[Rfam]
RNA: ASdes TB sRNA
RNA sequence: AGCUCCAUCGGGUCGACGGCCCUGGUGACCACCAGGUAGUCGCGAAGGGCGAUCCCGUGCCGGUUCUC
Numbered sequence: 001a002g003c004u005c006c007a008u009c010g011g012g013u014c015g016a017c018g019g020c021c022c023u024g025g026u027g028a029c030c031a032c033c034a035g036g037u038a039g040u041c042g043c044g045a046a047g048g049g050c051g052a053u054c055c056c057g058u059g060c061c062g063g064u065u066c067u068c
Base pairs, nucleotide, nucleotide: 004063005062008059011030012029013028016026017025035056036055038053040052041051042050043049